[Rfam]
RNA sequence: UUCUUAUCUAGAAAGGUGGAGGGACUGGCCCUUUGAAGCCUUAGCAACCGGAAUCUUAAUUUACGGUGCUAAUUCCAGCAGUAUUUACUGAAAGAUAAGUC
Numbered sequence: 001u002u003c004u005u006a007u008c009u010a011g012a013a014a015g016g017u018g019g020a021g022g023g024a025c026u027g028g029c030c031c032u033u034u035g036a037a038g039c040c041u042u043a044g045c046a047a048c049c050g051g052a053a054u055c056u057u058a059a060u061u062u063a064c065g066g067u068g069c070u071a072a073u074u075c076c077a078g079c080a081g082u083a084u085u086u087a088c089u090g091a092a093a094g095a096u097a098a099g100u101c
Stems, first nucleotide, its partner, number of pairs: 003099006013042005021031003025078004043070004048066002052062002074093001079090004

This 101-nucleotide RNA sequence from Listeria grayi belongs to the Rfam family "SAM riboswitch aptamer (S box leader)". The match comes from Rfam's covariance-model search (89 bits). The family has 457 seed sequences and 9,625 matches in Rfam 15.1.